The family of this 73-nucleotide sequence from Aminomonas paucivorans is "tRNA". The match comes from Rfam's covariance-model search (72 bits).
[Rfam]
RNA sequence: GAGCCGUUAGCUCAGCUGGUAGAGCACCGGACUUUUAAUCCGGGUGUCGUGGGUCCGAAUCCCACACGGCUCA
Numbered sequence: 001g002a003g004c005c006g007u008u009a010g011c012u013c014a015g016c017u018g019g020u021a022g023a024g025c026a027c028c029g030g031a032c033u034u035u036u037a038a039u040c041c042g043g044g045u046g047u048c049g050u051g052g053g054u055c056c057g058a059a060u061c062c063c064a065c066a067c068g069g070c071u072c073a
Stems, first nucleotide, its partner, number of pairs: 001072007010025004027043005049065005
Rfam classes the family as a transfer RNA.
Rfam links the family to the GO term triplet codon-amino acid adaptor activity.